RNA: Iron response element I
RNA sequence: UUGUUUCUGCUUCAGCAGCCUGGACAGAAACAA
Numbered sequence: 001u002u003g004u005u006u007c008u009g010c011u012u013c014a015g016c017a018g019c020c021u022g023g024a025c026a027g028a029a030a031c032a033a
Stems, first nucleotide, its partner, number of pairs: 001033007009025001011024005